Shown here is a 37-nucleotide RNA sequence from Rousettus aegyptiacus, a member of the family "XIST RNA A repeat". A reference for the family is Duszczyk et al. (2011), "The Xist RNA A-repeat comprises a novel AUCG tetraloop fold and a platform for multimerization", RNA. The family's consensus secondary structure was predicted with CMfinder. Rfam classes the family as a small RNA.
RNA sequence: UUGCCCACCGGGGCCGCGGAUACCUGCUUUACUUUUU
Numbered sequence: 001u002u003g004c005c006c007a008c009c010g011g012g013g014c015c016g017c018g019g020a021u022a023c024c025u026g027c028u029u030u031a032c033u034u035u036u037u
Stems, first nucleotide, its partner, number of pairs: 003014004017026003
Notes
Lineage of the source: Eukaryota > Deuterostomia > Sarcopterygii > Laurasiatheria > Rousettus.